RNA: gntR-DTE RNA
RNA sequence: CGGGUGAUGUCGUCGGCGGCCCCUUCCGCGUGCUGGCUCUGGAGAACAGCCCUGGUGAUCAUCCCUUCAUUCCUGGAGGUCAACGCCUUGGCUGCCACCCGGUACGCGCCGCCCUGCUGGCGUCAGAGCAGUGACGAUGACGCACCGA
Numbered sequence: 001c002g003g004g005u006g007a008u009g010u011c012g013u014c015g016g017c018g019g020c021c022c023c024u025u026c027c028g029c030g031u032g033c034u035g036g037c038u039c040u041g042g043a044g045a046a047c048a049g050c051c052c053u054g055g056u057g058a059u060c061a062u063c064c065c066u067u068c069a070u071u072c073c074u075g076g077a078g079g080u081c082a083a084c085g086c087c088u089u090g091g092c093u094g095c096c097a098c099c100c101g102g103u104a105c106g107c108g109c110c111g112c113c114c115u116g117c118u119g120g121c122g123u124c125a126g127a128g129c130a131g132u133g134a135c136g137a138u139g140a141c142g143c144a145c146c147g148a
Base pairs, nucleotide, nucleotide: 015113016112017111018110019109020108028107029106030105031104032103033102034101035100036099040097041096042095047094048093049092050091051090